[Rfam]
RNA sequence: AAAUAAAUGGCGGGGAGCUUGUAUGACAGGCUGAGAGGAAGGUAUGACCUUCGACCCAUUACCUGAUUUGGAUAAUGCCAACGUAGGGAAGUCCGGAAAUACAAGUUUU
Numbered sequence: 001a002a003a004u005a006a007a008u009g010g011c012g013g014g015g016a017g018c019u020u021g022u023a024u025g026a027c028a029g030g031c032u033g034a035g036a037g038g039a040a041g042g043u044a045u046g047a048c049c050u051u052c053g054a055c056c057c058a059u060u061a062c063c064u065g066a067u068u069u070g071g072a073u074a075a076u077g078c079c080a081a082c083g084u085a086g087g088g089a090a091g092u093c094c095g096g097a098a099a100u101a102c103a104a105g106u107u108u109u
Base pairs, nucleotide, nucleotide: 008095009094010093012057013056014055017031018030019029020028021027038052039051040050041049042048062087063086064085065084068081069080070079071078
This 109-nucleotide RNA sequence from Lentihominibacter hominis belongs to the Rfam family "TPP riboswitch aptamer (THI element)". Taxonomically the source falls in Lentihominibacter (Bacteria, Bacillati, Clostridia, Anaerovoracaceae).